Plastid-psbA-2 3UTR RNA: a 53-nucleotide sequence from Mazus pumilus. From the family's description: Plastid psbA-2 is a non-coding RNA (ncRNA) present in plastids. It was identified in inverted repeat sequences in the 3 prime untranslate region (3UTR) of photosystem II quinone-binding protein (psbA). The sequence is in the family's curated seed alignment. Rfam classes the family as a cis-regulatory element. The family is grouped with related families in Rfam's "Plastid-psbA 3UTR RNA clan". The family's consensus secondary structure was predicted with LocARNA.
RNA sequence: AAGGAGCAAUAACCUCUCUUGGUUUAUUAAGAGAGGUUGUUGCUCCUUUAUUU
Numbered sequence: 001a002a003g004g005a006g007c008a009a010u011a012a013c014c015u016c017u018c019u020u021g022g023u024u025u026a027u028u029a030a031g032a033g034a035g036g037u038u039g040u041u042g043c044u045c046c047u048u049u050a051u052u053u
Base pairs, nucleotide, nucleotide: 001048002047003046004045005044006043007042008041009040010039011038012037013036014035015034016033017032018031019030020029021028